Background: Alphaproteobacterial ar14: a 127-nucleotide RNA sequence from Oceanicola granulosus. It scores 62 bits against the family's covariance model. Smr14C2 was renamed NfeR1 (Nodule Formation Efficiency RNA) highly expressed in salt stress and during the symbiotic interaction on legume roots. Pairs were carried over by alignment from the consensus structure. By type it is a small RNA.
RNA sequence: CCAGUUCGGAGCCUUCUCUCCUCCUCCCUGAAGGCUCUGACCGCGGCUCGCUCUCUCCUCCUCCCUGAGCGGGUCGCACCUUGAAGAAGCGGCGGCGUCCAUCCUCCUCCCGGGCGUCGUCGCCUCU
Numbered sequence: 001c002c003a004g005u006u007c008g009g010a011g012c013c014u015u016c017u018c019u020c021c022u023c024c025u026c027c028c029u030g031a032a033g034g035c036u037c038u039g040a041c042c043g044c045g046g047c048u049c050g051c052u053c054u055c056u057c058c059u060c061c062u063c064c065c066u067g068a069g070c071g072g073g074u075c076g077c078a079c080c081u082u083g084a085a086g087a088a089g090c091g092g093c094g095g096c097g098u099c100c101a102u103c104c105u106c107c108u109c110c111c112g113g114g115c116g117u118c119g120u121c122g123c124c125u126c127u
Stems, first nucleotide, its partner, number of pairs: 007039010044076010090122011
Dot-bracket structure: ......((((((((((.............))))))))))....((((((((((.............)))))))))).............(((((((((((...........))))))))))).....